[Rfam]
RNA sequence: CGCCGGAAGUUUCCCUCAGGAUAGCUGGCGCGUGGAAACAAGGUGUUUCAUCCGGUAAAGCGAAUGAUUAGCGGUCUUGGGAUCGAAAAGAUCUCAACCGAUUCUCAAACUUUAAAUGGGUGAGAACUCAGACUUGCACGAACGAGAUUUCUCGGGGAAGUUCGAGAAGCGCAAUCCGGCGAUAUGUCGAAACGCGCAACGAAACCGAUACGUGCCAAGUGGGCCAUUUUUGGUAAGCAGAACUGGCGCUGUGGGAUGAACCAAACGUCGAGUUAAGGCGUCCAAAUCGACGCUCACGAGAUACCAUGAAAGGCGUUGGCUUCUAUAGACAGCAGGACAGUGGCCAUGGAAGUCGGAAUCUGCUAAGGAGUGUGUAACAACUCACCUGCCGAAGGAGCUAGCCCUGAAAAUGGAUGACGCUGAAGCGUCGUGCCUAUACUCGGCCGUCAGAAGGCAAAAGGGAAAAGUCGCGGGCGAACCUCGGAUCGCUCGCAACUCGUCGCCGCGUUCUCGUCCGGACGGUCGAGAGAUGUUCGGCGAACGCGUUCGCGCUCGAGUCUUUUCCCGUCAAGCCCUGACGAGUACGGCGUA
Numbered sequence: 001c002g003c004c005g006g007a008a009g010u011u012u013c014c015c016u017c018a019g020g021a022u023a024g025c026u027g028g029c030g031c032g033u034g035g036a037a038a039c040a041a042g043g044u045g046u047u048u049c050a051u052c053c054g055g056u057a058a059a060g061c062g063a064a065u066g067a068u069u070a071g072c073g074g075u076c077u078u079g080g081g082a083u084c085g086a087a088a089a090g091a092u093c094u095c096a097a098c099c100g101a102u103u104c105u106c107a108a109a110c111u112u113u114a115a116a117u118g119g120g121u122g123a124g125a126a127c128u129c130a131g132a133c134u135u136g137c138a139c140g141a142a143c144g145a146g147a148u149u150u151c152u153c154g155g156g157g158a159a160g161u162u163c164g165a166g167a168a169g170c171g172c173a174a175u176c177c178g179g180c181g182a183u184a185u186g187u188c189g190a191a192a193c194g195c196g197c198a199a200c201g202a203a204a205c206c207g208a209u210a211c212g213u214g215c216c217a218a219g220u221g222g223g224c225c226a227u228u229u230u231u232g233g234u235a236a237g238c239a240g241a242a243c244u245g246g247c248g249c250u251g252u253g254g255g256a257u258g259a260a261c262c263a264a265a266c267g268u269c270g271a272g273u274u275a276a277g278g279c280g281u282c283c284a285a286a287u288c289g290a291c292g293c294u295c296a297c298g299a300g301a302u303a304c305c306a307u308g309a310a311a312g313g314c315g316u317u318g319g320c321u322u323c324u325a326u327a328g329a330c331a332g333c334a335g336g337a338c339a340g341u342g343g344c345c346a347u348g349g350a351a352g353u354c355g356g357a358a359u360c361u362g363c364u365a366a367g368g369a370g371u372g373u374g375u376a377a378c379a380a381c382u383c384a385c386c387u388g389c390c391g392a393a394g395g396a397g398c399u400a401g402c403c404c405u406g407a408a409a410a411u412g413g414a415u416g417a418c419g420c421u422g423a424a425g426c427g428u429c430g431u432g433c434c435u436a437u438a439c440u441c442g443g444c445c446g447u448c449a450g451a452a453g454g455c456a457a458a459a460g461g462g463a464a465a466a467g468u469c470g471c472g473g474g475c476g477a478a479c480c481u482c483g484g485a486u487c488g489c490u491c492g493c494a495a496c497u498c499g500u501c502g503c504c505g506c507g508u509u510c511u512c513g514u515c516c517g518g519a520c521g522g523u524c525g526a527g528a529g530a531u532g533u534u535c536g537g538c539g540a541a542c543g544c545g546u547u548c549g550c551g552c553u554c555g556a557g558u559c560u561u562u563u564c565c566c567g568u569c570a571a572g573c574c575c576u577g578a579c580g581a582g583u584a585c586g587g588c589g590u591a
Stems, first nucleotide, its partner, number of pairs: 001589005010023001012021003026217007046125008058113001059111002065107003070102001072100003077097006084090001129196001134191001223247004228242005252263003267444005273438001277434003286431001288430001291427003311405003315402010332389005338362003344356002363367001368383001372381002445580006453574003
Source information
Shown here is a 591-nucleotide part of an RNA from Pediculus humanus, a member of the family "Eukaryotic large subunit ribosomal RNA". Rfam links the family to the GO terms ribosome and structural constituent of ribosome. Pairs were carried over by alignment from the consensus structure, which is taken from published work. Rfam 15.1 lists 107,465 matches to the family in 2,616 species.